[Rfam]
RNA sequence: GGCCUCCCUCUGUGGGGCGAUCGAUCGUGGAGCCCUCCCCCAUUGAUUGCCUUGCAGAGGGUGGCC
Numbered sequence: 001g002g003c004c005u006c007c008c009u010c011u012g013u014g015g016g017g018c019g020a021u022c023g024a025u026c027g028u029g030g031a032g033c034c035c036u037c038c039c040c041c042a043u044u045g046a047u048u049g050c051c052u053u054g055c056a057g058a059g060g061g062u063g064g065c066c
Base pairs, nucleotide, nucleotide: 001066002065003064004063006061007060008059009058010057011056012055013054014053015052016051017050018049019048020047021046022045023044024043025042027040029038030037031036

Shown here is a 66-nucleotide sequence from Eptesicus fuscus, a member of the family "mir-9242 microRNA precursor family". Rfam's curators put it in the seed alignment.